[Rfam]
RNA sequence: UGACGCCUGUUCCUCCUACUGCUCUGAGCUGUGGCUGUUGGGAUUUUAGGUCGUCACAGAGUGAUGCGGGUCUAUUUCACCCAGUGUUCAUUAGGCAGCAGCGCUGCUAUUAUCCCCACUGGACUUUGCGAGGCCCCACAUGU
Numbered sequence: 001u002g003a004c005g006c007c008u009g010u011u012c013c014u015c016c017u018a019c020u021g022c023u024c025u026g027a028g029c030u031g032u033g034g035c036u037g038u039u040g041g042g043a044u045u046u047u048a049g050g051u052c053g054u055c056a057c058a059g060a061g062u063g064a065u066g067c068g069g070g071u072c073u074a075u076u077u078c079a080c081c082c083a084g085u086g087u088u089c090a091u092u093a094g095g096c097a098g099c100a101g102c103g104c105u106g107c108u109a110u111u112a113u114c115c116c117c118a119c120u121g122g123a124c125u126u127u128g129c130g131a132g133g134c135c136c137c138a139c140a141u142g143u
Stems, first nucleotide, its partner, number of pairs: 001056005007050002014043005021035003069135005081122006090113001094108005
Record summary
The record is a 143-nucleotide sequence from Esox lucius, which matches "Small nucleolar RNA SNORA79" in Rfam. It is annotated as an H/ACA-box small nucleolar RNA. ACA65 (SNORA79) is a member of the H/ACA class of snoRNAs that guide the sites of modification of uridines to pseudouridines. On this family, see Schattner et al., RNA 2006: "A computational screen for mammalian pseudouridylation guide H/ACA RNAs". The source organism's lineage runs through Eukaryota, Vertebrata, Teleostomi, Clupeocephala and Esox.